Background
Small nucleolar RNA SNORA70: a 135-nucleotide RNA from Bos grunniens. Gene Ontology terms of the family: RNA processing and nucleolus. From the family's description: snoRNA U70 seems to be exclusive to mammals and is a member of the H/ACA class of snoRNA which contain H (ANANNA) and ACA box motifs. H/ACA box snoRNAs are involved in the conversion of uridines to pseudouridines (5-ribosyluracil) a constituent of structural RNAs (transfer, ribosomal, small nuclear, and small nucleolar). Rfam 15.1 lists 5,173 matches to the family in 383 species.
[Rfam]
RNA sequence: UUGCAGCUGAUCAAGCCGACUAUGUGCUUUUCCCUGUGGGGUCCCAGGGUGCAGUGGCUGCAAAUAGCAGCCCCCCUGGUGGUGUAUGCAGUCAGUUGUCUGUACAGGUUGCCCUAAGGGACCUUGAAGACAACU
Numbered sequence: 001u002u003g004c005a006g007c008u009g010a011u012c013a014a015g016c017c018g019a020c021u022a023u024g025u026g027c028u029u030u031u032c033c034c035u036g037u038g039g040g041g042u043c044c045c046a047g048g049g050u051g052c053a054g055u056g057g058c059u060g061c062a063a064a065u066a067g068c069a070g071c072c073c074c075c076c077u078g079g080u081g082g083u084g085u086a087u088g089c090a091g092u093c094a095g096u097u098g099u100c101u102g103u104a105c106a107g108g109u110u111g112c113c114c115u116a117a118g119g120g121a122c123c124u125u126g127a128a129g130a131c132a133a134c135u
Stems, first nucleotide, its partner, number of pairs: 002053004020047002027040002078123003089111005